[Rfam]
RNA sequence: UUUAAUGGCCUCUAGGGUUCCGGUUUGAGCCGCGCAAUAUAAAUCUAAUUUCAAAUUGCCGUUGCUCAAAUGCUGGUCCGAGAGAGGUAAGCUGGCUUCUCCAAAACUUAUAGUUUUUUGUGAGGAAUUCGCUAGUUACACGGCGGGAUAAAAGCCCGGGAGGA
Numbered sequence: 001u002u003u004a005a006u007g008g009c010c011u012c013u014a015g016g017g018u019u020c021c022g023g024u025u026u027g028a029g030c031c032g033c034g035c036a037a038u039a040u041a042a043a044u045c046u047a048a049u050u051u052c053a054a055a056u057u058g059c060c061g062u063u064g065c066u067c068a069a070a071u072g073c074u075g076g077u078c079c080g081a082g083a084g085a086g087g088u089a090a091g092c093u094g095g096c097u098u099c100u101c102c103a104a105a106a107c108u109u110a111u112a113g114u115u116u117u118u119u120g121u122g123a124g125g126a127a128u129u130c131g132c133u134a135g136u137u138a139c140a141c142g143g144c145g146g147g148a149u150a151a152a153a154g155c156c157c158g159g160g161a162g163g164a
Stems, first nucleotide, its partner, number of pairs: 008088005015079002020076002022073001023071008090137007139159001141162001145157003